[Rfam]
RNA sequence: CUCUUAUCCUGAGCUGGCGGAGGGACAGGCCCGAUGAAGCCCGGCAACCAGUUUAAAUAGGUGUCUCACCUAUUUAAGACAAAGGUGCUUAAACCUGUGCAAGGUCCAAACCUUGGGCGAUAAGAG
Numbered sequence: 001c002u003c004u005u006a007u008c009c010u011g012a013g014c015u016g017g018c019g020g021a022g023g024g025a026c027a028g029g030c031c032c033g034a035u036g037a038a039g040c041c042c043g044g045c046a047a048c049c050a051g052u053u054u055a056a057a058u059a060g061g062u063g064u065c066u067c068a069c070c071u072a073u074u075u076a077a078g079a080c081a082a083a084g085g086u087g088c089u090u091a092a093a094c095c096u097g098u099g100c101a102a103g104g105u106c107c108a109a110a111c112c113u114u115g116g117g118c119g120a121u122a123a124g125a126g
Stems, first nucleotide, its partner, number of pairs: 001126008013042001016041003022032003026099002028095002043089004048085002051080003100115006
Dot-bracket structure: ((((((((....(..(((...(((.[[[[)))......))))((((.((.(((........................)))...))))))....]]..]]((((((....))))))...))))))))

Record summary
Rfam assigns this 126-nucleotide RNA from Bacillaceae bacterium SAS-127 to the family "SAM riboswitch aptamer (S box leader)". Pairs were carried over by alignment from the consensus structure, which is taken from published work. Its family is annotated with regulation of gene expression in the Gene Ontology. It scores 68 bits against the family's covariance model. For this family Rfam cites "An mRNA structure that controls gene expression by binding S-adenosylmethionine" (Winkler et al., Nat Struct Biol, 2003).